A member of the RNA family "Early nodulin 40" from Nelumbo nucifera, 311 nucleotides long. On this family, see Gultyaev and Roussis, Nucleic Acids Res 2007: "Identification of conserved secondary structures and expansion segments in enod40 RNAs reveals new enod40 homologues in plants". The source organism's lineage runs through Eukaryota, Streptophyta, Tracheophyta, Proteales and Nelumbo. Pairs were carried over by alignment from the consensus structure, which is taken from published work.
RNA sequence: AUGGAAUUCUUGUGCUGGCAGGAAUCUAUACAUGGGUCUUGAAGAAAAGGAUGAUGGAGGUUGGAGUACUGAGGGGAAUUCAAAUACACCCUCCUCCAAUCUUCUGUCAAUUUGUAUAUGUUUCUGGGCCAUCAGCUCCUGCACUCUAUUCCCUUGUUUUCCUCAAGAACACCAUCGACCAUCGUCAAAUCAAACUUAGGAUGAAGGUGUCUAGAGACUAGAGCAGCAGCUUUAUUGGCUUAAGGCAUAGCACAAACCGGCAAGUCACGAAACGGCAAUGGCGGCUCAGAUGACUCCAUGAAACGGGUCGC
Dot-bracket structure: ..........................................................((...................................)).............(((((.............((.(..............................................................................................................)))......)))))...................................(((((........)))))..